The family of this 82-nucleotide sequence from Schizosaccharomyces japonicus is "Small nucleolar RNA R38". A reference for the family is Chen et al. (2003), "The high diversity of snoRNAs in plants: identification and comparative study of 120 snoRNA genes from Oryza sativa", Nucleic Acids Res. Taxonomically the source falls in Schizosaccharomyces japonicus (Eukaryota, Opisthokonta, Dikarya, Schizosaccharomycetes). The base pairs follow the family's consensus structure, which was predicted with PFOLD. snoR38 is a C/D box small nucleolar RNA conserved across yeast, human, Arabidopsis and rice. It is encoded in the intron of elongation factor-1 gamma in both pombe and cerevisiae. snoR38 guides the methylation of 2'-O-ribose sites in 28S rRNA.
RNA sequence: CGAGGGUAAAAUGAUGAGAAUUUAUUUCUACAGUUAUCCCUGUCUGAAAAACAGUGUUGAGAAUGGUAAAUCUGAAUCCUCA
Number, nucleotide and partner (000 for none) at each position: 001c000002g081003a080004g079005g078006g077007u076008a000009a000010a000011a000012u000013g000014a000015u000016g000017a000018g000019a000020a000021u000022u000023u000024a000025u000026u000027u000028c000029u000030a000031c000032a000033g000034u000035u000036a000037u000038c000039c000040c000041u000042g000043u000044c000045u000046g000047a000048a000049a000050a000051a000052c000053a000054g000055u000056g000057u000058u000059g000060a000061g000062a000063a000064u000065g000066g000067u000068a000069a000070a000071u000072c000073u000074g000075a000076a007077u006078c005079c004080u003081c002082a000